[Rfam]
The family of this 210-nucleotide sequence from Acrobeloides nanus is "MIR2670 microRNA precursor family". It scores 118 bits against the family's covariance model. The family has 7 seed sequences and 188 matches in Rfam 15.1. The organism belongs to Acrobeloides, within Eukaryota.

RNA sequence: UUAUCGCUCAUUUUUGAGUAAUUAGCCUGACAAGAUAGCCCCAACCCUUCGGAAAAACAUAAGGGGGGACCCUUAUCUCCAAAAAUUUUUUUCUCAAAAUUUUUCAGGAAAUUUUGAGAAAAAAAUUUUUGGAGAUAAGGGUCCCCCCUUAUGUUUUUUCGAAGGGUUGGGGCUAUCUUGUCAGGCUAAUUACUCAAAAAUGAGCGAUAA
Numbered sequence: 001u002u003a004u005c006g007c008u009c010a011u012u013u014u015u016g017a018g019u020a021a022u023u024a025g026c027c028u029g030a031c032a033a034g035a036u037a038g039c040c041c042c043a044a045c046c047c048u049u050c051g052g053a054a055a056a057a058c059a060u061a062a063g064g065g066g067g068g069a070c071c072c073u074u075a076u077c078u079c080c081a082a083a084a085a086u087u088u089u090u091u092u093c094u095c096a097a098a099a100u101u102u103u104u105c106a107g108g109a110a111a112u113u114u115u116g117a118g119a120a121a122a123a124a125a126u127u128u129u130u131g132g133a134g135a136u137a138a139g140g141g142u143c144c145c146c147c148c149u150u151a152u153g154u155u156u157u158u159u160c161g162a163a164g165g166g167u168u169g170g171g172g173c174u175a176u177c178u179u180g181u182c183a184g185g186c187u188a189a190u191u192a193c194u195c196a197a198a199a200a201u202g203a204g205c206g207a208u209a210a
Stems, first nucleotide, its partner, number of pairs: 003208021026185010040171007048163005054157004059152009069142014087124017